Overview: A member of the RNA family "Plasmid-encoded Shigella sRNA A" from Kosakonia cowanii, 83 nucleotides long. It is annotated as a small RNA. The literature on the family includes a 2011 paper in PLoS One by Peng et al., "An integrated approach for finding overlooked genes in Shigella".

RNA sequence: UGGCUGCGAAAAGAGUUUUAAUUUUUUUCAGAGACCGUAGAAAAUUAGCGGUUUCAGGCGACAGGCACAUACGCCAAUCCUGA
Numbered sequence: 001u002g003g004c005u006g007c008g009a010a011a012a013g014a015g016u017u018u019u020a021a022u023u024u025u026u027u028u029c030a031g032a033g034a035c036c037g038u039a040g041a042a043a044a045u046u047a048g049c050g051g052u053u054u055c056a057g058g059c060g061a062c063a064g065g066c067a068c069a070u071a072c073g074c075c076a077a078u079c080c081u082g083a
Base pairs, nucleotide, nucleotide: 001067002066004064005063006062007060008059013055014054015053017051018050019047020046021045022044023043